[Rfam]
RNA sequence: CCGGCAUCCCCGGGGGACCGCUCAGCGCGGUUGAGAGGGAGCGAGCACGCUCCGACCCGCCGAACCUGAUCCGGCUCACACCGGCGUAGGGAGGGAGACGCGGUCAUCG
Number, nucleotide and partner (000 for none) at each position: 001c000002c000003g000004g000005c000006a000007u096008c095009c094010c093011c059012g058013g057014g056015g000016g053017a031018c030019c029020g028021c027022u000023c000024a000025g000026c000027g021028c020029g019030g018031u017032u000033g000034a000035g000036a000037g000038g000039g052040a051041g050042c049043g000044a000045g000046c000047a000048c000049g042050c041051u040052c039053c016054g000055a000056c014057c013058c012059g011060c000061c000062g000063a000064a000065c090066c089067u088068g087069a000070u000071c084072c083073g082074g081075c000076u000077c000078a000079c000080a000081c074082c073083g072084g071085c000086g000087u068088a067089g066090g065091g000092a000093g010094g009095g008096a007097g000098a000099c000100g000101c000102g000103g000104u000105c000106a000107u000108c000109g000